[Rfam]
The record is a 92-nucleotide RNA, which matches "Rhodo-rpoB RNA" in Rfam. Pairs were carried over by alignment from the consensus structure, which is taken from published work. Rfam classes the family as a cis-regulatory element.
Nucleotides: 092
Base pairs, nucleotide, nucleotide: 002040003039004038005037010029011028012027013026014025015024064091065090066089067088069086070085071084072083073082
Number, partner (000 for none) and nucleotide at each position: 001000a002040g003039g004038u005037c006000g007000g008000g009000a010029g011028c012027c013026c014025c015024c016000u017000u018000u019000g020000g021000g022000u023000c024015g025014g026013g027012g028011g029010c030000a031000g032000g033000a034000a035000u036000a037005g038004a039003c040002c041000g042000a043000a044000c045000c046000c047000c048000u049000c050000u051000g052000u053000u054000u055000c056000g057000u058000c059000a060000g061000g062000g063000c064091a065090c066089a067088g068000c069086c070085g071084c072083c073082g074000g075000c076000a077000c078000c079000c080000a081000a082073c083072g084071g085070u086069g087000a088067u089066u090065g091064u092000c